Shown here is a 355-nucleotide RNA from Chitinasiproducens palmae, a member of the family "Betaproteobacteria transfer-messenger RNA". Clan: tRNA clan. Bacterial tmRNA, also known as 10Sa RNA or SsrA, is named for its dual tRNA and mRNA-like properties. Its role is to liberate the mRNA from a stalled ribosome. To accomplish this part of the tmRNA is used as a reading frame that ends in a translation stop signal. The broken mRNA is replaced in the ribosome by the tmRNA and translation of the tmRNA leads to addition of a proteolysis tag to the incomplete protein enabling recognition by a protease. Recently a number of permuted tmRNA genes have been found encoded in two parts. tmRNAs have been identified in eubacteria and some chloroplasts but are absent from archaeal and eukaryote nuclear genomes. The organism belongs to Chitinasiproducens, within Bacteria. The base pairs follow the family's consensus structure, which is taken from published work. It is annotated as a non-coding RNA gene.
RNA sequence: AACCUAGCACAGCAUUGCGUGCAGCGCGAUUAUGGUAAAAUUGCACCAUGGUCGUAUCAAGACCGCCAUGUGGGUACGCUCCGGACGGGGGUUCGAUUCCCCCCGGCUCCACCAGAUGGACAUCGCUGCUGACGAGGUCAAUUUCUCGUUGCCUGGUGUCCAUCCCCUGGGGCCGACCUGGUUUCGACGGGGUGAGGAAACGGACGCGGACGACUCGGAAGGUGACGCACGUUAUGCGCACAAUCUCAGAAAUGCCAACGAUGAGCGUUUCUUGCAAGCGGCCUAAUAACCGCUUACGGAGUCUUCCCGACUUGGCAACAGAAUAGGGAUGGCGGCCCCUUCGGGGGCCGUUUCU
Numbered sequence: 001a002a003c004c005u006a007g008c009a010c011a012g013c014a015u016u017g018c019g020u021g022c023a024g025c026g027c028g029a030u031u032a033u034g035g036u037a038a039a040a041u042u043g044c045a046c047c048a049u050g051g052u053c054g055u056a057u058c059a060a061g062a063c064c065g066c067c068a069u070g071u072g073g074g075u076a077c078g079c080u081c082c083g084g085a086c087g088g089g090g091g092u093u094c095g096a097u098u099c100c101c102c103c104c105g106g107c108u109c110c111a112c113c114a115g116a117u118g119g120a121c122a123u124c125g126c127u128g129c130u131g132a133c134g135a136g137g138u139c140a141a142u143u144u145c146u147c148g149u150u151g152c153c154u155g156g157u158g159u160c161c162a163u164c165c166c167c168u169g170g171g172g173c174c175g176a177c178c179u180g181g182u183u184u185c186g187a188c189g190g191g192g193u194g195a196g197g198a199a200a201c202g203g204a205c206g207c208g209g210a211c212g213a214c215u216c217g218g219a220a221g222g223u224g225a226c227g228c229a230c231g232u233u234a235u236g237c238g239c240a241c242a243a244u245c246u247c248a249g250a251a252a253u254g255c256c257a258a259c260g261a262u263g264a265g266c267g268u269u270u271c272u273u274g275c276a277a278g279c280g281g282c283c284u285a286a287u288a289a290c291c292g293c294u295u296a297c298g299g300a301g302u303c304u305u306c307c308c309g310a311c312u313u314g315g316c317a318a319c320a321g322a323a324u325a326g327g328g329a330u331g332g333c334g335g336c337c338c339c340u341u342c343g344g345g346g347g348c349c350g351u352u353u354c355u
Base pairs, nucleotide, nucleotide: 050215051214052213053212054211063209065207066206069202070201071200077194078193079192080191081190082189083188087103088102089101090100091099104175105174106173107172108171109170110169216231217230300313301312305329306328307327308326332351333350334349335348336347337346338345339344